[Rfam]
RNA sequence: UUGAAGCUGAUGGGAGAGAGCUGGUUCCCGGCCGCCGAAGAUGCAAGUUUCUAUUAUUGUCAUGGUAGGAACGAACCUUUCAGGUAAAAGGACCAUUGGCAGAUC
Number, nucleotide and partner (000 for none) at each position: 001u000002u000003g000004a000005a000006g100007c099008u098009g097010a096011u095012g094013g093014g000015a000016g000017a000018g000019a000020g032021c031022u030023g029024g000025u000026u000027c000028c000029c023030g022031g021032c020033c000034g085035c084036c083037g081038a080039a000040g000041a079042u000043g077044c000045a000046a000047g072048u071049u070050u069051c068052u067053a066054u065055u064056a000057u000058u000059g000060u000061c000062a000063u000064g055065g054066u053067a052068g051069g050070a049071a048072c047073g000074a000075a000076c000077c043078u000079u041080u038081c037082a000083g036084g035085u034086a000087a000088a000089a000090g000091g000092a000093c013094c012095a011096u010097u009098g008099g007100c006101a000102g000103a000104u000105c000
RNA: Glycine riboswitch aptamer
Organism: bacterium 1XD42-8